The family of this 48-nucleotide RNA sequence from Lujinxingia litoralis is "Guanidine-II riboswitch aptamer (mini-ykkC)". The match comes from Rfam's covariance-model search (46 bits). Gene Ontology term of the family: regulation of gene expression. About the family: Simpler in structure and has fewer highly conserved nucleotide positions than the ykkC-yxkD leader. Despite this each of its two stem-loop structures directly bind free guanidine. Therefore, mini-ykkC RNA motif represents a distinct class of guanidine-sensing RNAs. Its crystal structure was also determined.

[Rfam]
RNA sequence: CGCUCAGGACGACCUGAGCGCCUGUCGUUUGAUUGAGGGACGACCCUC
Numbered sequence: 001c002g003c004u005c006a007g008g009a010c011g012a013c014c015u016g017a018g019c020g021c022c023u024g025u026c027g028u029u030u031g032a033u034u035g036a037g038g039g040a041c042g043a044c045c046c047u048c
Base pairs, nucleotide, nucleotide: 001020002019003018004017005016006015007014008013035048036047037046038045039044